Notes
Shown here is a 60-nucleotide sequence, a member of the family "Plastid-psbA-4 3UTR RNA". Rfam describes the family as follows. Plastid psbA-4 is a non-coding RNA (ncRNA) present in plastids. It was identified in inverted repeat sequences in the 3 prime untranslate region (3UTR) of photosystem II quinone-binding protein (psbA). A reference for the family is Richter et al. (2023), "Retrograde signaling in plants: A critical review focusing on the GUN pathway and beyond", Plant Commun.
RNA sequence: GAAAGUAAAGGGGCAAUAAGCAAUUUCUUGUUUUAUCCGGGAGUUGCUAUUGCUCCUUUU
Number, nucleotide and partner (000 for none) at each position: 001g000002a000003a000004a000005g000006u000007a059008a058009a057010g056011g055012g054013g053014c052015a051016a050017u049018a048019a000020g000021c000022a044023a000024u000025u042026u041027c040028u039029u000030g037031u000032u000033u000034u000035a000036u000037c030038c000039g028040g027041g026042a025043g000044u022045u000046g000047c000048u018049a017050u016051u015052g014053c013054u012055c011056c010057u009058u008059u007060u000